[Rfam]
RNA: SAM-I/IV (S-adenosyl methionine) riboswitch aptamer
RNA sequence: UAAAGGCAUUACGAGUGGUCUGGUUAAAACUAGAUCCGGCAACCUGGGAGGACACCCAAGGUGCCCGCUCAUCCGCAAGGAAGAGGAUGUGGCCUGAAAGGGCAACAAAGUGUCCGGU
Numbered sequence: 001u002a003a004a005g006g007c008a009u010u011a012c013g014a015g016u017g018g019u020c021u022g023g024u025u026a027a028a029a030c031u032a033g034a035u036c037c038g039g040c041a042a043c044c045u046g047g048g049a050g051g052a053c054a055c056c057c058a059a060g061g062u063g064c065c066c067g068c069u070c071a072u073c074c075g076c077a078a079g080g081a082a083g084a085g086g087a088u089g090u091g092g093c094c095u096g097a098a099a100g101g102g103c104a105a106c107a108a109a110g111u112g113u114c115c116g117g118u
Stems, first nucleotide, its partner, number of pairs: 006090005015037001017036008038065003043061003046057003050114002092103004
Dot-bracket structure: .....(((((....(.((((((((....)))))))))(((..((((((.[[...))).))).)))....................))))).((((....)))).........]]....